[Rfam]
RNA sequence: AGAUGAGAGAAACACCCCGCUCGCAGGAGACUGCGGGCGACCCCAGGCCGGAGCCUCCCCAGCCCCGUCCUGGUCGUGCCCUCGCGCACACCACUGGAGCUGCAGGCUCCGGAACUCCUCACCGAUCGGA
Number, nucleotide and partner (000 for none) at each position: 001a000002g000003a000004u121005g120006a119007g118008a000009g117010a116011a000012a000013c000014a000015c000016c000017c000018c039019g038020c037021u036022c035023g034024c033025a032026g031027g000028a000029g000030a000031c026032u025033g024034c023035g022036g021037g020038c019039g018040a000041c000042c000043c073044c072045a071046g070047g069048c000049c067050g066051g065052a000053g063054c062055c000056u000057c000058c000059c000060c000061a000062g054063c053064c000065c051066c050067g049068u000069c047070c046071u045072g044073g043074u000075c000076g089077u088078g087079c086080c000081c000082u000083c000084g000085c000086g079087c078088a077089c076090a000091c000092c000093a000094c112095u111096g110097g109098a108099g107100c106101u000102g000103c000104a000105g000106g100107c099108u098109c097110c096111g095112g094113a000114a000115c000116u010117c009118c007119u006120c005121a004122c129123c128124g000125a000126u000127c000128g123129g122130a000
RNA: Streptomyces RNA 5676